[Rfam]
RNA sequence: UAUAAAUCCUAUCUCCGAGCCGUAAUAACCUAAUGAGAAAUCUAUGGUUACCGGCCAGGGCUUUAAACCCUCAGGGUGUACCCGGAAACGGAUAUGCCUUCACUAUUGAAAAGGAGGUGGCUAGGCCUGCUA
Number, nucleotide and partner (000 for none) at each position: 001u000002a000003u000004a000005a000006a000007u000008c000009c000010u000011a118012u117013c116014u115015c114016c113017g000018a000019g055020c054021c053022g052023u000024a000025a049026u000027a000028a048029c047030c046031u000032a000033a000034u000035g042036a041037g000038a000039a000040a000041u036042c035043u000044a000045u000046g030047g029048u028049u025050a000051c000052c022053g021054g020055c019056c000057a071058g070059g069060g068061c000062u000063u000064u000065a000066a000067a000068c060069c059070c058071u057072c000073a000074g099075g098076g097077u096078g095079u094080a093081c000082c091083c090084g089085g000086a000087a000088a000089c084090g083091g082092a000093u080094a079095u078096g077097c076098c075099u074100u109101c108102a000103c000104u000105a000106u000107u000108g101109a100110a000111a000112a000113g016114g015115a014116g013117g012118u011119g000120g000121c000122u000123a000124g000125g000126c000127c000128u000129g000130c000131u000132a000
RNA: Molybdenum/Tungsten riboswitch aptamer (Moco RNA motif)
Organism: Desulfosporosinus cupriresistens